RNA sequence: UCUCCAUUUCACGCACUCUCUCGCAGCUCUGACCGGUGAGAGAGCGCGUGAAAUGAAGAGA
Numbered sequence: 001u002c003u004c005c006a007u008u009u010c011a012c013g014c015a016c017u018c019u020c021u022c023g024c025a026g027c028u029c030u031g032a033c034c035g036g037u038g039a040g041a042g043a044g045c046g047c048g049u050g051a052a053a054u055g056a057a058g059a060g061a
Base pairs, nucleotide, nucleotide: 001059002058003057005055006054007053010050012048013047014046016044017043019041020040021039022038
The family of this 61-nucleotide sequence from Pristionchus pacificus is "mir-8364 microRNA precursor family". The base pairs follow the family's consensus structure, which was predicted with RNAalifold.